[Rfam]
RNA sequence: UGAACGGCAACGAAGGAACGAAGUAGUCUUGCAAUUCCCUAUCUUAGAGAGCUAGUGGCUGGUGAAAACUAGUAUAUAUUUGCGGAUGAAUUACAUUCUGGAGCUAUUUCCUAUUGGUAUCUAUUACUCAAUUGGAACGGUGGAGACAUCGUUAACAAAUCCCAAGUGGCAUAGUAUAUGCAACAAGGGUGGUACCGCGUGAUUAAACUCGUCCCUUUU
Numbered sequence: 001u002g003a004a005c006g007g008c009a010a011c012g013a014a015g016g017a018a019c020g021a022a023g024u025a026g027u028c029u030u031g032c033a034a035u036u037c038c039c040u041a042u043c044u045u046a047g048a049g050a051g052c053u054a055g056u057g058g059c060u061g062g063u064g065a066a067a068a069c070u071a072g073u074a075u076a077u078a079u080u081u082g083c084g085g086a087u088g089a090a091u092u093a094c095a096u097u098c099u100g101g102a103g104c105u106a107u108u109u110c111c112u113a114u115u116g117g118u119a120u121c122u123a124u125u126a127c128u129c130a131a132u133u134g135g136a137a138c139g140g141u142g143g144a145g146a147c148a149u150c151g152u153u154a155a156c157a158a159a160u161c162c163c164a165a166g167u168g169g170c171a172u173a174g175u176a177u178a179u180g181c182a183a184c185a186a187g188g189g190u191g192g193u194a195c196c197g198c199g200u201g202a203u204u205a206a207a208c209u210c211g212u213c214c215c216u217u218u219u
Stems, first nucleotide, its partner, number of pairs: 007104002015099004026087003030084003040076003051073006109136003113132003138151003169181005186216004197212003201208001
RNA: T-box leader